[Rfam]
RNA sequence: CUCGGCAGCGUGGGAGAGACCUCCCUCACCGGAGGCGCCGAAGGCGCAACUUCCGCCCGGAAACGCUCAGGCAAAAGGACCGCGCUGCCCGA
Numbered sequence: 001c002u003c004g005g006c007a008g009c010g011u012g013g014g015a016g017a018g019a020c021c022u023c024c025c026u027c028a029c030c031g032g033a034g035g036c037g038c039c040g041a042a043g044g045c046g047c048a049a050c051u052u053c054c055g056c057c058c059g060g061a062a063a064c065g066c067u068c069a070g071g072c073a074a075a076a077g078g079a080c081c082g083c084g085c086u087g088c089c090c091g092a
Stems, first nucleotide, its partner, number of pairs: 006087008020035004037072003040068002044066003050060002

Shown here is a 92-nucleotide RNA sequence from Ectothiorhodospira magna, a member of the family "Glycine riboswitch aptamer". Pairs were carried over by alignment from the consensus structure. Lineage of the source: Bacteria > Pseudomonadati > Gammaproteobacteria > Chromatiales > Ectothiorhodospira.